Rfam assigns this 35-nucleotide RNA to the family "DUF805b RNA". The family's RNA type in Rfam is cis-regulatory element. The sequence is in the family's curated seed alignment. The family's consensus secondary structure is taken from published work.

RNA sequence: ACAGGGGAUGCUGAAAACCUAUAAAAGAGUAAGCA
Numbered sequence: 001a002c003a004g005g006g007g008a009u010g011c012u013g014a015a016a017a018c019c020u021a022u023a024a025a026a027g028a029g030u031a032a033g034c035a
Base pairs, nucleotide, nucleotide: 003020004019005018010034011033012032